[Rfam]
RNA sequence: AUAAUAUGUAAGUAAGAAACUUAUAUAUGACUAUAAUAUGGUUAGUCGUCUCUACCCGAUACCGUAAAUAUCGGACUAUAAGUAAAUAAAGAUACUGA
Numbered sequence: 001a002u003a004a005u006a007u008g009u010a011a012g013u014a015a016g017a018a019a020c021u022u023a024u025a026u027a028u029g030a031c032u033a034u035a036a037u038a039u040g041g042u043u044a045g046u047c048g049u050c051u052c053u054a055c056c057c058g059a060u061a062c063c064g065u066a067a068a069u070a071u072c073g074g075a076c077u078a079u080a081a082g083u084a085a086a087u088a089a090a091g092a093u094a095c096u097g098a
Stems, first nucleotide, its partner, number of pairs: 019083007029047005056074006
A member of the RNA family "Purine riboswitch aptamer" from Vagococcus acidifermentans, 98 nucleotides long. A search with the family's covariance model found it, with a score of 74 bits. Rfam links the family to the GO term purine nucleobase biosynthetic process.